RNA: TPP riboswitch aptamer (THI element)
Organism: Ureibacillus sinduriensis
RNA sequence: UUAGAUUACUAGGGGAUCCCUUGAUAAGGGCUGAGAAUAAAGUAGUUACUUUUUAAACCCUCAAAACCUGAACAGGUUAGAACCUGCGUAGGAAAGUAGCGAAUGUUUGUA
Numbered sequence: 001u002u003a004g005a006u007u008a009c010u011a012g013g014g015g016a017u018c019c020c021u022u023g024a025u026a027a028g029g030g031c032u033g034a035g036a037a038u039a040a041a042g043u044a045g046u047u048a049c050u051u052u053u054u055a056a057a058c059c060c061u062c063a064a065a066a067c068c069u070g071a072a073c074a075g076g077u078u079a080g081a082a083c084c085u086g087c088g089u090a091g092g093a094a095a096g097u098a099g100c101g102a103a104u105g106u107u108u109g110u111a
Base pairs, nucleotide, nucleotide: 006099007098008097009096010095011061012060013059014058018030019029020028021027039053040052041051042050067092068091069090070089073086074085075084076083